The record is a 109-nucleotide RNA sequence from Staphylococcus massiliensis, which matches "SAM riboswitch aptamer (S box leader)" in Rfam.
RNA sequence: AUCUUAUCCAGAGAGGUGGAGGGAAAGGCCCUUUGAAACCUCGGCAACAGGCUCAAUCGUUUUUGAAAACUGUGCCAAUUCCUGCAACGUGAAGUUGUAAAGAUGAGAC
Number, nucleotide and partner (000 for none) at each position: 001a000002u108003c107004u106005u105006a104007u103008c102009c000010a000011g000012a000013g042014a041015g040016g039017u038018g000019g000020a000021g031022g030023g029024a000025a000026a083027g082028g081029c023030c022031c021032u000033u000034u000035g000036a000037a000038a017039c016040c015041u014042c013043g076044g075045c074046a073047a000048c072049a071050g000051g000052c000053u066054c065055a000056a000057u000058c000059g000060u000061u000062u000063u000064u000065g054066a053067a000068a000069a000070c000071u049072g048073u046074g045075c044076c043077a000078a000079u000080u101081c028082c027083u026084g000085c097086a096087a095088c094089g000090u000091g000092a000093a000094g088095u087096u086097g085098u000099a000100a000101a080102g008103a007104u006105g005106a004107g003108a002109c000

The organism belongs to Staphylococcus massiliensis, within Bacteria.